[Rfam]
RNA sequence: AAAAAGGGUCUUUGCCGUUAAUGGCACAGCAAUGUGGGAGUCUAAUCCCACUGCGCUGCGGAAUGGCUAUCACGACAUUUCGAAGACAUAAUUUUUAGGGCAGGGCAGCUAACCUAAUAAACAGGCAUAGCGCCCUU
Dot-bracket structure: .......((((((((((....)))))((((...(((((........)))))...))))(((((((..........))))))))))))...............((((.((((................))))))))..
Rfam assigns this 137-nucleotide RNA from Macrostomum lignano to the family "U11 spliceosomal RNA". It is annotated as a spliceosomal small nuclear RNA. The base pairs follow the family's consensus structure, which is taken from published work. The organism belongs to Macrostomum, within Eukaryota. It scores 90 bits against the family's covariance model. The family has 72 seed sequences and 2,595 matches in Rfam 15.1.